Record summary:
Rfam assigns this 80-nucleotide RNA from Aquibacillus halophilus to the family "ZMP/ZTP riboswitch aptamer (pfl RNA motif)".

RNA sequence: AGGGCUAUGUGUAACUGGCGAAAUGCGGAUAACCGUAAGGGAGCACAUAGUAUCGAUAGCCGUUCGCCUGGGCAAAGGUA
Numbered sequence: 001a002g003g004g005c006u007a008u009g010u011g012u013a014a015c016u017g018g019c020g021a022a023a024u025g026c027g028g029a030u031a032a033c034c035g036u037a038a039g040g041g042a043g044c045a046c047a048u049a050g051u052a053u054c055g056a057u058a059g060c061c062g063u064u065c066g067c068c069u070g071g072g073c074a075a076a077g078g079u080a
Base pairs, nucleotide, nucleotide: 004051005050006049007048008047009046010045011044012043015040016039017068018067019066020065021064025036026035027034028033057075059073060072061071
Source information:
Pairs were carried over by alignment from the consensus structure, which is taken from published work. Taxonomically the source falls in Aquibacillus (Bacteria, Bacillota, Caryophanales, Bacillaceae).